[Rfam]
The family of this 71-nucleotide RNA from Roseovarius tolerans is "Singlet oxygen resistance RNA X". The base pairs follow the family's consensus structure. The source organism's lineage runs through Bacteria, Pseudomonadota, Rhodobacterales, Roseobacteraceae and Roseovarius. Rfam describes the family as follows. SorX (RSs2461)like SorY is a singlet oxygen induced sRNA that counteracts oxidative stress by targeting mRNA for a transporter in Rhodobacter. It also has an impact on resistance against organic hydroperoxides. It targets SD sequence of potA mRNA via an aSD sequence. The aSD sequence and some neighbouring nucleotides are identical to the one of SorY (targets takP mRNA). Rfam 15.1 lists 528 matches to the family in 356 species. Its family is annotated with response to photooxidative stress in the Gene Ontology.
RNA sequence: UGUUAGCUCAUGUAUGGCUAUACAUGAACCUCCCUGUUGGACUGGCCCCGGCAUCGCGCCGGGGCUUUUUU
Numbered sequence: 001u002g003u004u005a006g007c008u009c010a011u012g013u014a015u016g017g018c019u020a021u022a023c024a025u026g027a028a029c030c031u032c033c034c035u036g037u038u039g040g041a042c043u044g045g046c047c048c049c050g051g052c053a054u055c056g057c058g059c060c061g062g063g064g065c066u067u068u069u070u071u
Base pairs, nucleotide, nucleotide: 008027009026010025011024012023013022014021045065046064047063048062049061050060051059052058